About this RNA: Alphaproteobacterial sRNA ar9: a 181-nucleotide RNA from Pleomorphomonas diazotrophica. The base pairs follow the family's consensus structure.
RNA sequence: CCGUCAAAAUAGGCAAAAAUAGAAUGCCUUCCGGUUAUCGCGGUCUGAGUCUUGGGAGGGAAAACCCAUAUAGGCGCGGAAAACGCUGCCGCCGGCGGAUGGAUUGGGAGGUCUUUCUAUCUGUAGGCUUUAUGGGCUGACACGCGGAACUAAAAGCAGGGCUUCGGCCCUGCUUUUUUAU
Numbered sequence: 001c002c003g004u005c006a007a008a009a010u011a012g013g014c015a016a017a018a019a020u021a022g023a024a025u026g027c028c029u030u031c032c033g034g035u036u037a038u039c040g041c042g043g044u045c046u047g048a049g050u051c052u053u054g055g056g057a058g059g060g061a062a063a064a065c066c067c068a069u070a071u072a073g074g075c076g077c078g079g080a081a082a083a084c085g086c087u088g089c090c091g092c093c094g095g096c097g098g099a100u101g102g103a104u105u106g107g108g109a110g111g112u113c114u115u116u117c118u119a120u121c122u123g124u125a126g127g128c129u130u131u132a133u134g135g136g137c138u139g140a141c142a143c144g145c146g147g148a149a150c151u152a153a154a155a156g157c158a159g160g161g162c163u164u165c166g167g168c169c170c171u172g173c174u175u176u177u178u179u180a181u
Base pairs, nucleotide, nucleotide: 003181004180006178011029012028013027014026015025039146040145041144042143050060051059052058064138066136067135073090074089075088076086077085078084092127093126155174156173157172158171159170160169161168162167
A reference for the family is del Val et al. (2012), "A survey of sRNA families in alpha-proteobacteria", RNA Biol. Rfam classes the family as a small RNA.